[Rfam]
RNA: Bacterial RNase P class A
Organism: Candidatus Campylobacter infans
RNA sequence: CCGCUAUGGCAAGUAGUCGCGCUUAAAUAAGCGAGGAAAGUCCGAGCUGCAUUAGGGCAGGGCUACAUCUAAUGGAUGUCAGGAGCGAUCCUAGGGAAAGUGCAACAGAAAGCAAACCGCCAGCGCAUCGCGCUUGGCAAGGGUGAAACGGCGAGGUAAGAGCUCACCAGCACGCAAGCCAGAACAAGCGGCGUGGCUAUGCAAACCCAGCUCGCAGCAAGAAGCGGUGGUAAAGCCCUAAAAUAUACGCUUUGCUAGACUUUAAUGGCGACAUUAAAGCAAGAUAAAUGACUACAUAAACAAAACUCGGCUUAUAGCCAUAGCCUCGUU
Numbered sequence: 001c002c003g004c005u006a007u008g009g010c011a012a013g014u015a016g017u018c019g020c021g022c023u024u025a026a027a028u029a030a031g032c033g034a035g036g037a038a039a040g041u042c043c044g045a046g047c048u049g050c051a052u053u054a055g056g057g058c059a060g061g062g063c064u065a066c067a068u069c070u071a072a073u074g075g076a077u078g079u080c081a082g083g084a085g086c087g088a089u090c091c092u093a094g095g096g097a098a099a100g101u102g103c104a105a106c107a108g109a110a111a112g113c114a115a116a117c118c119g120c121c122a123g124c125g126c127a128u129c130g131c132g133c134u135u136g137g138c139a140a141g142g143g144u145g146a147a148a149c150g151g152c153g154a155g156g157u158a159a160g161a162g163c164u165c166a167c168c169a170g171c172a173c174g175c176a177a178g179c180c181a182g183a184a185c186a187a188g189c190g191g192c193g194u195g196g197c198u199a200u201g202c203a204a205a206c207c208c209a210g211c212u213c214g215c216a217g218c219a220a221g222a223a224g225c226g227g228u229g230g231u232a233a234a235g236c237c238c239u240a241a242a243a244u245a246u247a248c249g250c251u252u253u254g255c256u257a258g259a260c261u262u263u264a265a266u267g268g269c270g271a272c273a274u275u276a277a278a279g280c281a282a283g284a285u286a287a288a289u290g291a292c293u294a295c296a297u298a299a300a301c302a303a304a305a306c307u308c309g310g311c312u313u314a315u316a317g318c319c320a321u322a323g324c325c326u327c328g329u330u
Stems, first nucleotide, its partner, number of pairs: 003324008011315001013295006020033005038313003042310005047217004060213005065079005080094001081092004095208002100206002102202003117142002119138005150168002153165003170197001171195005221253006260279008